[Rfam]
RNA sequence: GUUGCUUCUUACUGGUGAACUCUCUCAGAUUAUAAUGAUGGAUGUUCAUGUUUCCGAAGCAUAAAUUGAUUUUGAAAUCUGCCAGUAUUAAACAGCUCCGUGUAAUUUUAUUUUGCACUCAGCUACCUGUCUCCUGGUACAUUC
Numbered sequence: 001g002u003u004g005c006u007u008c009u010u011a012c013u014g015g016u017g018a019a020c021u022c023u024c025u026c027a028g029a030u031u032a033u034a035a036u037g038a039u040g041g042a043u044g045u046u047c048a049u050g051u052u053u054c055c056g057a058a059g060c061a062u063a064a065a066u067u068g069a070u071u072u073u074g075a076a077a078u079c080u081g082c083c084a085g086u087a088u089u090a091a092a093c094a095g096c097u098c099c100g101u102g103u104a105a106u107u108u109u110a111u112u113u114u115g116c117a118c119u120c121a122g123c124u125a126c127c128u129g130u131c132u133c134c135u136g137g138u139a140c141a142u143u144c
Base pairs, nucleotide, nucleotide: 003061004060005059006058007057008056016048017047018046019045020044021042022041023040025038081138082137083136084135085134087132094124095123096122100118101117102116

The family of this 144-nucleotide sequence from Cucumis sativus is "small nucleolar RNA snoR137". On this family, see Chen and Wu, Nucleic Acids Res 2009: "Mining small RNA sequencing data: a new approach to identify small nucleolar RNAs in Arabidopsis". The source organism's lineage runs through Eukaryota, Magnoliopsida, Gunneridae, Pentapetalae and Cucumis. A search with the family's covariance model found it, with a score of 118 bits. Gene Ontology terms of the family: nucleolus and RNA processing.